[Rfam]
A member of the RNA family "SAM (S-adenosyl methionine) riboswitch aptamer" from Nocardia cyriacigeorgica, 111 nucleotides long. SAM-IV is a mRNA element that regulates gene expression via direct sensing of S-adenosylmethionine (SAM or AdoMet). SAM-IV riboswitches share conserved nucleotide positions with the previously described SAM-I riboswitches sequence analysis and molecular recognition experiments suggest that SAM-I and SAM-IV riboswitches share similar ligand binding sites, but have different scaffolds. A reference for the family is Weinberg et al. (2008), "The aptamer core of SAM-IV riboswitches mimics the ligand-binding site of SAM-I riboswitches", RNA. Pairs were carried over by alignment from the consensus structure, which is taken from published work.
RNA sequence: GGUCAUGAGAGCCAGUGCAAAGCCCCGGCUAGCUGGACGGCAACCCUCCUGCAGCGGUGGGGUGCUCCGGGUGAGGACCGGGCUUCCGAGAGCCGGAAGCAAGCGCGCACG
Numbered sequence: 001g002g003u004c005a006u007g008a009g010a011g012c013c014a015g016u017g018c019a020a021a022g023c024c025c026c027g028g029c030u031a032g033c034u035g036g037a038c039g040g041c042a043a044c045c046c047u048c049c050u051g052c053a054g055c056g057g058u059g060g061g062g063u064g065c066u067c068c069g070g071g072u073g074a075g076g077a078c079c080g081g082g083c084u085u086c087c088g089a090g091a092g093c094c095g096g097a098a099g100c101a102a103g104c105g106c107g108c109a110c111g
Stems, first nucleotide, its partner, number of pairs: 001079004009038001012036005021030002039066003044062003048057002082100007
Rfam links the family to the GO terms S-adenosylmethionine metabolic process and regulation of gene expression.